TPP riboswitch aptamer (THI element): a 105-nucleotide RNA from Thermoactinomyces mirandus.
It scores 76 bits against the family's covariance model.
RNA sequence: AAUCGCCACUAGGGGUGCACACAAGUGUGCUGAGAGGAACGGAGUUUCCAACCCUUUGAACUUGAACUGGGUCAUGCCAGCGAAAGGAAGUGGGGAAAGGUGUUU
Numbered sequence: 001a002a003u004c005g006c007c008a009c010u011a012g013g014g015g016u017g018c019a020c021a022c023a024a025g026u027g028u029g030c031u032g033a034g035a036g037g038a039a040c041g042g043a044g045u046u047u048c049c050a051a052c053c054c055u056u057u058g059a060a061c062u063u064g065a066a067c068u069g070g071g072u073c074a075u076g077c078c079a080g081c082g083a084a085a086g087g088a089a090g091u092g093g094g095g096a097a098a099g100g101u102g103u104u105u
Stems, first nucleotide, its partner, number of pairs: 006093005011055004017030005037048003061086003067080004